This 70-nucleotide sequence from Cricetulus griseus belongs to the Rfam family "mir-344 microRNA precursor family".
The family's consensus secondary structure was predicted with RNAalifold.
Nucleotides: 070
Base pairs, nucleotide, nucleotide: 007064008063011060012059013058014057016055017054018053020051021050022049023048026040027039028038029037
Number, partner (000 for none) and nucleotide at each position: 001000u002000u003000a004000c005000c006000a007064g008063u009000c010000a011060g012059g013058c014057u015000c016055u017054g018053g019000c020051u021050a022049u023048a024000u025000c026040u027039c028038a029037g030000g031000u032000c033000u034000c035000a036000g037029u038028u039027g040026g041000u042000g043000c044000u045000g046000g047000a048023u049022a050021u051020a052000a053018c054017c055016a056000c057014a058013g059012c060011c061000c062000a063008a064007c065000u066000g067000u068000a069000c070000a
NCBI's taxonomy places the organism under Eukaryota, Dipnotetrapodomorpha, Mammalia, Eutheria, Cricetulus.